A member of the RNA family "nhaA-I RNA", 51 nucleotides long. Acidobacteria, Alphaproteobacteria, Betaproteobacteria and Gammaproteobacteria, Verrucomicrobia, cand. division NC10.

RNA sequence: GGGUGCAGCGAGCAUCGCUGCAGGCACCGCUGCUGGUCGGGCCGCCAGUGG
Numbered sequence: 001g002g003g004u005g006c007a008g009c010g011a012g013c014a015u016c017g018c019u020g021c022a023g024g025c026a027c028c029g030c031u032g033c034u035g036g037u038c039g040g041g042c043c044g045c046c047a048g049u050g051g
Stems, first nucleotide, its partner, number of pairs: 005021006030051004035046003